[Rfam]
RNA: Small nucleolar RNA F1/F2/snoR5a
RNA sequence: GAAUGCCAUGAGGUAUCUGAUGCUUGGUCUCUUUCAAUGGCCUUGUUUCUCGUUAGAUUGGCAGAGAGCGAGAAGGAAACGGGUUUUUGCGACACGGGCUGCUCCCAUACCCGGAGCUUCCUGUUACUAUACCCCCGUUUACAUUU
Numbered sequence: 001g002a003a004u005g006c007c008a009u010g011a012g013g014u015a016u017c018u019g020a021u022g023c024u025u026g027g028u029c030u031c032u033u034u035c036a037a038u039g040g041c042c043u044u045g046u047u048u049c050u051c052g053u054u055a056g057a058u059u060g061g062c063a064g065a066g067a068g069c070g071a072g073a074a075g076g077a078a079a080c081g082g083g084u085u086u087u088u089g090c091g092a093c094a095c096g097g098g099c100u101g102c103u104c105c106c107a108u109a110c111c112c113g114g115a116g117c118u119u120c121c122u123g124u125u126a127c128u129a130u131a132c133c134c135c136c137g138u139u140u141a142c143a144u145u146u
Base pairs, nucleotide, nucleotide: 004063005062006061007060008059009057019049020048022046023045026042027041028040029039078139079138080137081136082135094124095123096122097121098120101117102116103115104114105113